Description
This 85-nucleotide RNA sequence from Silurus meridionalis belongs to the Rfam family "mir-184 microRNA precursor family". The literature on the family includes a 2005 paper in Genes Dev by Chen et al., "The developmental miRNA profiles of zebrafish as determined by small RNA cloning". Pairs were carried over by alignment from the consensus structure, which was predicted with PFOLD. The source organism's lineage runs through Eukaryota, Bilateria, Chordata, Craniata and Silurus. The family has 66 seed sequences and 948 matches in Rfam 15.1.
RNA sequence: UCAUUCACAUUUCCUUAUCACUUUUCCAGCCCAGCUAAUAAUGGUGAAUCCGUUGGACGGAGAACUGAUAAGGGUAUGUGUCUGA
Numbered sequence: 001u002c003a004u005u006c007a008c009a010u011u012u013c014c015u016u017a018u019c020a021c022u023u024u025u026c027c028a029g030c031c032c033a034g035c036u037a038a039u040a041a042u043g044g045u046g047a048a049u050c051c052g053u054u055g056g057a058c059g060g061a062g063a064a065c066u067g068a069u070a071a072g073g074g075u076a077u078g079u080g081u082c083u084g085a
Stems, first nucleotide, its partner, number of pairs: 012074009022064006030056002